[Rfam]
RNA: mraW RNA
RNA sequence: CGAGGCGAGUGCCCUGCGGCCUCUGCCCGACGCGGACCCUGACGUACUUCCCCAACGCCAGGUGCCGUGCUUCGGUCAGAGACCCUGGGGCAUUGGCCCACCGAC
Numbered sequence: 001c002g003a004g005g006c007g008a009g010u011g012c013c014c015u016g017c018g019g020c021c022u023c024u025g026c027c028c029g030a031c032g033c034g035g036a037c038c039c040u041g042a043c044g045u046a047c048u049u050c051c052c053c054a055a056c057g058c059c060a061g062g063u064g065c066c067g068u069g070c071u072u073c074g075g076u077c078a079g080a081g082a083c084c085c086u087g088g089g090g091c092a093u094u095g096g097c098c099c100a101c102c103g104a105c
Base pairs, nucleotide, nucleotide: 010092011091012090013089014088015087016086018084019083021081022080023079024078025077027075028074029073030072031069032068033067034066035065038062039061040060041059043057044056045055